[Rfam]
Overview:
Rfam assigns this 52-nucleotide sequence from Rhodomicrobium vannielii to the family "serC leader". Taxonomically the source falls in Rhodomicrobium vannielii (Bacteria, Pseudomonadati, Hyphomicrobiaceae, Rhodomicrobium). By type it is a cis-regulatory leader. This family is a putative regulatory RNA structure that is found upstream of the serC-serA operon in some alpha-proteobacteria. The final stem of the structure overlaps the ribosome binding site of the serC reading frame.
RNA sequence: UCGCGGGACACUUCCCCCCACCGGGAAGCAACUAUCUGAAAGGGUAGACCGC
Numbered sequence: 001u002c003g004c005g006g007g008a009c010a011c012u013u014c015c016c017c018c019c020a021c022c023g024g025g026a027a028g029c030a031a032c033u034a035u036c037u038g039a040a041a042g043g044g045u046a047g048a049c050c051g052c
Stems, first nucleotide, its partner, number of pairs: 011028006032047006

Overview: Gene Ontology term of the family: regulation of gene expression. The match comes from Rfam's covariance-model search (61 bits).